[Rfam]
Rfam assigns this 206-nucleotide sequence to the family "permuted transfer-messenger RNA". The base pairs follow the family's consensus structure, which is taken from published work.
RNA sequence: GGCGAUAAACGCUGCUCGGAAUAAUCGUUGCGGACCCGGGGGCAGUACCCGGCGCCUCCACCACCCUUUGGGCCGGCGGCCCGCGUUGCGGGGGCGAACCAGGAUCGACGUGCGUGGUAAAGGUGUAGUUUUCGCCCGGCAUGGUACCGCCGUUAUCGGGCCAACGCAGAGGUGCGAAUGACAAUGAAGUCGCACUCGCUGCCUAG
Numbered sequence: 001g002g003c004g005a006u007a008a009a010c011g012c013u014g015c016u017c018g019g020a021a022u023a024a025u026c027g028u029u030g031c032g033g034a035c036c037c038g039g040g041g042g043c044a045g046u047a048c049c050c051g052g053c054g055c056c057u058c059c060a061c062c063a064c065c066c067u068u069u070g071g072g073c074c075g076g077c078g079g080c081c082c083g084c085g086u087u088g089c090g091g092g093g094g095c096g097a098a099c100c101a102g103g104a105u106c107g108a109c110g111u112g113c114g115u116g117g118u119a120a121a122g123g124u125g126u127a128g129u130u131u132u133c134g135c136c137c138g139g140c141a142u143g144g145u146a147c148c149g150c151c152g153u154u155a156u157c158g159g160g161c162c163a164a165c166g167c168a169g170a171g172g173u174g175c176g177a178a179u180g181a182c183a184a185u186g187a188a189g190u191c192g193c194a195c196u197c198g199c200u201g202c203c204u205a206g
Base pairs, nucleotide, nucleotide: 001136002135003134004133005132014126015125017123026114027113028112030111031110032109036052037051038050039049040048053096054095055094056093057092058091059090137152138151139150140149
Source information:
Bacterial tmRNA, also known as 10Sa RNA or SsrA, is named for its dual tRNA and mRNA-like properties. Its role is to liberate the mRNA from a stalled ribosome.